Notes:
The family of this 52-nucleotide sequence from Canis lupus is "mir-1302 microRNA precursor family". NCBI's taxonomy places the organism under Eukaryota, Eumetazoa, Teleostomi, Theria, Canis lupus. Pairs were carried over by alignment from the consensus structure, which was predicted with WAR.

RNA sequence: AUUUCAGUAUAGGUGUAUCCCAUGCAAUAUUUGGGAUAUACUUAUACUAAAA
Numbered sequence: 001a002u003u004u005c006a007g008u009a010u011a012g013g014u015g016u017a018u019c020c021c022a023u024g025c026a027a028u029a030u031u032u033g034g035g036a037u038a039u040a041c042u043u044a045u046a047c048u049a050a051a052a
Stems, first nucleotide, its partner, number of pairs: 006048007014040003018036004022031001